A member of the RNA family "Bacterial small subunit ribosomal RNA" from Peptidiphaga gingivicola, 562 nucleotides of a longer RNA.
Pairs were carried over by alignment from the consensus structure, which is taken from published work.

RNA sequence: UUUGUGGAGAGUUUGAUCCUGGCUCAGGACGAACGCUGGCGGCGUGCUUAACACAUGCAAGUCGAACGAUGAAGCGCUGUCUUUGUGGUGGUGUGGAUUAGUGGCGAACGGGUGAGUAAUACGCGGGCAACCUGCCCCUCUGCUUCGGGAUAAGCUUUGGAAACGGGGUCUAAUACCGGAUGUGCCUGUCUGGUCGCAUGGCUGGGCGGGGAAAGAUGUUUUUCGGCGGGGGAUGGGCUCGCGGCCUAUCAGCUUGUUGGUGGGGUGACGGCCUACCAAGGCGUCGACGGGUAGCCGGCCUGAGAGGGUGGUCGGCCACACUGGGACUGAGAUACGGCCCAGACUCCUACGGGAGGCAGCAGUGGGGGAUAUUGCACAAUGGGCGCAAGCCUGAUGCAGCGACGCCGCGUGGGGGAUGGAGGCUUUCGGGUUGUAAACCCCUUUCGGCGCGGGACAAGGCUCCGUUUGGCGGGGUUGAGGGUACGCGUCAAAGAAGCGCCGGCUAACUACGUGCCAGCAGCCGCGGUAAUACGUAGGGCGCGAGCGUUGUCCGGAAUUAUUG
Numbered sequence: 001u002u003u004g005u006g007g008a009g010a011g012u013u014u015g016a017u018c019c020u021g022g023c024u025c026a027g028g029a030c031g032a033a034c035g036c037u038g039g040c041g042g043c044g045u046g047c048u049u050a051a052c053a054c055a056u057g058c059a060a061g062u063c064g065a066a067c068g069a070u071g072a073a074g075c076g077c078u079g080u081c082u083u084u085g086u087g088g089u090g091g092u093g094u095g096g097a098u099u100a101g102u103g104g105c106g107a108a109c110g111g112g113u114g115a116g117u118a119a120u121a122c123g124c125g126g127g128c129a130a131c132c133u134g135c136c137c138c139u140c141u142g143c144u145u146c147g148g149g150a151u152a153a154g155c156u157u158u159g160g161a162a163a164c165g166g167g168g169u170c171u172a173a174u175a176c177c178g179g180a181u182g183u184g185c186c187u188g189u190c191u192g193g194u195c196g197c198a199u200g201g202c203u204g205g206g207c208g209g210g211g212a213a214a215g216a217u218g219u220u221u222u223u224c225g226g227c228g229g230g231g232g233a234u235g236g237g238c239u240c241g242c243g244g245c246c247u248a249u250c251a252g253c254u255u256g257u258u259g260g261u262g263g264g265g266u267g268a269c270g271g272c273c274u275a276c277c278a279a280g281g282c283g284u285c286g287a288c289g290g291g292u293a294g295c296c297g298g299c300c301u302g303a304g305a306g307g308g309u310g311g312u313c314g315g316c317c318a319c320a321c322u323g324g325g326a327c328u329g330a331g332a333u334a335c336g337g338c339c340c341a342g343a344c345u346c347c348u349a350c351g352g353g354a355g356g357c358a359g360c361a362g363u364g365g366g367g368g369a370u371a372u373u374g375c376a377c378a379a380u381g382g383g384c385g386c387a388a389g390c391c392u393g394a395u396g397c398a399g400c401g402a403c404g405c406c407g408c409g410u411g412g413g414g415g416a417u418g419g420a421g422g423c424u425u426u427c428g429g430g431u432u433g434u435a436a437a438c439c440c441c442u443u444u445c446g447g448c449g450c451g452g453g454a455c456a457a458g459g460c461u462c463c464g465u466u467u468g469g470c471g472g473g474g475u476u477g478a479g480g481g482u483a484c485g486c487g488u489c490a491a492a493g494a495a496g497c498g499c500c501g502g503c504u505a506a507c508u509a510c511g512u513g514c515c516a517g518c519a520g521c522c523g524c525g526g527u528a529a530u531a532c533g534u535a536g537g538g539c540g541c542g543a544g545c546g547u548u549g550u551c552c553g554g555a556a557u558u559a560u561u562g
Base pairs, nucleotide, nucleotide: 009025010024011023012022013021027552028551029550030549032548033547034546035545036544037543039408040407041406042405043404044403045401046400047366052364053363054362056361057360058359061105062104063103066102067101069098070097075090076089077088078087079086080085112319113318114317122243123242124241125240126239127238128237131236132235136232137231138230140229141228142227143226145179146178147177148176154169155168156167157166158165159164185210186209187208188207189206190205191204193202194201195200215224216223245291246290247289252282253281254280257279258278259277260276261275262274263273264272294316295315296314297313298309299308300307301306321342322341323340324339325338344355345354346353347352372398374397375396376395380393381392382391383390384389411441412440413439414438421432422431423430424429445493446489447488448487449486450485451484455479461473462472463471496541497540498539499538500537507536508535509534510533511532517524518523
The organism belongs to Peptidiphaga, within Bacteria. A reference for the family is Yusupov et al. (2001), "Crystal structure of the ribosome at 5.5 A resolution", Science. The match comes from Rfam's covariance-model search (1498 bits).